[Rfam]
RNA sequence: UCUACUACAUGAAGACAUCCUCUGAAACCAGCUCAGCUGUGAGGAGGUUGUCUGAUCCAAUGUAAA
Numbered sequence: 001u002c003u004a005c006u007a008c009a010u011g012a013a014g015a016c017a018u019c020c021u022c023u024g025a026a027a028c029c030a031g032c033u034c035a036g037c038u039g040u041g042a043g044g045a046g047g048u049u050g051u052c053u054g055a056u057c058c059a060a061u062g063u064a065a066a
Base pairs, nucleotide, nucleotide: 001066003064004063005062014052015051016050017049019047020046021045022044023043029039030038031037
Shown here is a 66-nucleotide sequence from Cynoglossus semilaevis, a member of the family "Selenocysteine insertion sequence 1".
A search with the family's covariance model found it, with a score of 37 bits.
Pairs were carried over by alignment from the consensus structure, which is taken from published work.
The family has 61 seed sequences and 3,793 matches in Rfam 15.1.
The incorporation of selenocysteine into a protein sequence is directed by an in-frame UGA codon (usually a stop codon) within the coding region of the mRNA. Selenoprotein mRNAs contain a conserved secondary structure in the 3' UTR that is required for the distinction of UGA stop from UGA selenocysteine. The selenocysteine insertion sequence (SECIS) is around 60 nt in length and adopts a hairpin structure which is sufficiently well-defined and conserved to act as a computational screen for selenoprotein genes.